RNA: mir-10 microRNA precursor family
Organism: Ameiurus melas
RNA sequence: UGUCAUUAACCCGUAGAUCCGAUCUUGUGGUACUUAACAACGCAAGCUCGUCUCUACGGGUCUCUGUCUC
Dot-bracket structure: .(.((....(((..(((..(((.((((((...........)))))).)))..)))..)))....)).)..